This 135-nucleotide RNA sequence from Papaver somniferum belongs to the Rfam family "Small nucleolar RNA snoR74". Gene Ontology terms of the family: RNA processing and nucleolus. The family's consensus secondary structure was predicted with WAR.
RNA sequence: CAAAAAGCAGGGAUUUGUUGCCAUUGUGAACAUGUCUCUCGUUGAUGUCAGGGAAAUUUAAGUGAGUCAUUGUUAUUGGGUGAACCUCUUUAAAUGAUUUAAUUAACAGAAGGUUCAGUAAAUGAUGAUACAUGC
Numbered sequence: 001c002a003a004a005a006a007g008c009a010g011g012g013a014u015u016u017g018u019u020g021c022c023a024u025u026g027u028g029a030a031c032a033u034g035u036c037u038c039u040c041g042u043u044g045a046u047g048u049c050a051g052g053g054a055a056a057u058u059u060a061a062g063u064g065a066g067u068c069a070u071u072g073u074u075a076u077u078g079g080g081u082g083a084a085c086c087u088c089u090u091u092a093a094a095u096g097a098u099u100u101a102a103u104u105a106a107c108a109g110a111a112g113g114u115u116c117a118g119u120a121a122a123u124g125a126u127g128a129u130a131c132a133u134g135c
Stems, first nucleotide, its partner, number of pairs: 005048001007046001011037002014034001016032002066129009081117007